[Rfam]
RNA sequence: UUAAAUCCUGUGAGAAAGAGAGUAACUUCUAUGUGUUUUAUAGAGAGCUGAGGAUGGUGGAAGCUUGGCAAAUAAGUAUUAGUGAAAAGAACUUUGGAGGAUACUAAUUGAAUUUAGUAUGUUAGUAGGUAAUCUCGCCUUAAGAGAAAGAGUGGAUAAGUUUAUCUUAUCAAUUAGAGUGGUAACGCGGAUAUAUUUCGUCUCUUGG
Numbered sequence: 001u002u003a004a005a006u007c008c009u010g011u012g013a014g015a016a017a018g019a020g021a022g023u024a025a026c027u028u029c030u031a032u033g034u035g036u037u038u039u040a041u042a043g044a045g046a047g048c049u050g051a052g053g054a055u056g057g058u059g060g061a062a063g064c065u066u067g068g069c070a071a072a073u074a075a076g077u078a079u080u081a082g083u084g085a086a087a088a089g090a091a092c093u094u095u096g097g098a099g100g101a102u103a104c105u106a107a108u109u110g111a112a113u114u115u116a117g118u119a120u121g122u123u124a125g126u127a128g129g130u131a132a133u134c135u136c137g138c139c140u141u142a143a144g145a146g147a148a149a150g151a152g153u154g155g156a157u158a159a160g161u162u163u164a165u166c167u168u169a170u171c172a173a174u175u176a177g178a179g180u181g182g183u184a185a186c187g188c189g190g191a192u193a194u195a196u197u198u199c200g201u202c203u204c205u206u207g208g
Stems, first nucleotide, its partner, number of pairs: 007100002015095004025083003030078001036072003047069006103126006128139003155171006176205004187201005
Rfam assigns this 208-nucleotide RNA from Clostridioides difficile to the family "T-box leader".
Rfam's curators put it in the seed alignment.
The family's RNA type in Rfam is cis-regulatory leader.